[Rfam]
RNA: Small Cajal body specific RNA 3
Organism: Catharus fuscescens
RNA sequence: ACUGGAAGCUGCUGGGACCAAUUGGGACCAGUCAUGGGCAAAAUUAAUGUUUUUUGUCCAGUGUUGCAGUCUUCCCAGAGGAAAGUGGAGGUCUCUGUCUGCUUUAGGACAGCCCACUAAAUCAGAUCGUUCACCUCCUUACACA
Number, nucleotide and partner (000 for none) at each position: 001a000002c000003u000004g075005g074006a073007a000008g070009c069010u068011g067012c066013u000014g000015g000016g000017a000018c000019c000020a000021a000022u000023u000024g000025g059026g058027a057028c056029c000030a054031g053032u000033c000034a000035u000036g000037g000038g050039c049040a048041a000042a000043a000044u000045u000046a000047a000048u040049g039050u038051u000052u000053u031054u030055u000056g028057u027058c026059c025060a000061g000062u000063g000064u000065u000066g012067c011068a010069g009070u008071c000072u000073u006074c005075c004076c000077a000078g000079a000080g000081g000082a000083a000084a000085g000086u000087g138088g137089a136090g135091g134092u000093c000094u000095c129096u000097g127098u126099c125100u000101g123102c000103u121104u120105u119106a118107g117108g000109a000110c000111a000112g000113c000114c000115c000116a000117c107118u106119a105120a104121a103122u000123c101124a000125g099126a098127u097128c000129g095130u000131u000132c000133a000134c091135c090136u089137c088138c087139u000140u000141a000142c000143a000144c000145a000